[Rfam]
RNA sequence: UGGUGAUGAUAGGGACAAUUCAGCAACAACAUUUUAAAUCGCUCCCAUGCUUGGGGCAAGCCUUCACCUUCCUUCUACCUAAAAUCCAAGAUCUCACUCCUCAAUUU
Numbered sequence: 001u002g003g004u005g006a007u008g009a010u011a012g013g014g015a016c017a018a019u020u021c022a023g024c025a026a027c028a029a030c031a032u033u034u035u036a037a038a039u040c041g042c043u044c045c046c047a048u049g050c051u052u053g054g055g056g057c058a059a060g061c062c063u064u065c066a067c068c069u070u071c072c073u074u075c076u077a078c079c080u081a082a083a084a085u086c087c088a089a090g091a092u093c094u095c096a097c098u099c100c101u102c103a104a105u106u107u
Base pairs, nucleotide, nucleotide: 003105004104005102006101058073060071
Dot-bracket structure: ..((((...................................................(.(..........).)...........................)).))..
Annotation
A member of the RNA family "Plant small nucleolar RNA R71" from Solanum commersonii, 107 nucleotides long. The organism belongs to Solanum, within Eukaryota. The literature on the family includes a 2003 paper in Trends Plant Sci by Brown et al., "Plant snoRNAs: functional evolution and new modes of gene expression". Rfam 15.1 lists 278,378 matches to the family in 216 species. It scores 49 bits against the family's covariance model. By type it is a C/D-box small nucleolar RNA.